[Rfam]
RNA sequence: UUUGAAAAUGAUGAAACAUUUACGGAUGAUACAUGUCCGAGAGCGCAAAACCGUGUGGAUAAUGCCGUUGCCUUCCUUCUGAUUCAU
Numbered sequence: 001u002u003u004g005a006a007a008a009u010g011a012u013g014a015a016a017c018a019u020u021u022a023c024g025g026a027u028g029a030u031a032c033a034u035g036u037c038c039g040a041g042a043g044c045g046c047a048a049a050a051c052c053g054u055g056u057g058g059a060u061a062a063u064g065c066c067g068u069u070g071c072c073u074u075c076c077u078u079c080u081g082a083u084u085c086a087u
Base pairs, nucleotide, nucleotide: 003086004085005084023067024066025065
RNA: Small nucleolar RNA Z13/snr52
Organism: Schizosaccharomyces japonicus